[Rfam]
RNA sequence: UUUGUCCCUAGAGGAGUUGCAGGUGUGGCUGCUGUGUCACAUGGGUGUCAGUAGGUGGCAGAGAGGAGAGAGGUUAUGUCUAUGCUCAGUGUUCUGAUCUGUGAACCUCUGAAUGAUAGGUAGUUUAACAUA
Numbered sequence: 001u002u003u004g005u006c007c008c009u010a011g012a013g014g015a016g017u018u019g020c021a022g023g024u025g026u027g028g029c030u031g032c033u034g035u036g037u038c039a040c041a042u043g044g045g046u047g048u049c050a051g052u053a054g055g056u057g058g059c060a061g062a063g064a065g066g067a068g069a070g071a072g073g074u075u076a077u078g079u080c081u082a083u084g085c086u087c088a089g090u091g092u093u094c095u096g097a098u099c100u101g102u103g104a105a106c107c108u109c110u111g112a113a114u115g116a117u118a119g120g121u122a123g124u125u126u127a128a129c130a131u132a
Stems, first nucleotide, its partner, number of pairs: 002061005007055004013049002019046002024041006068129001071126007083115002086112004091106004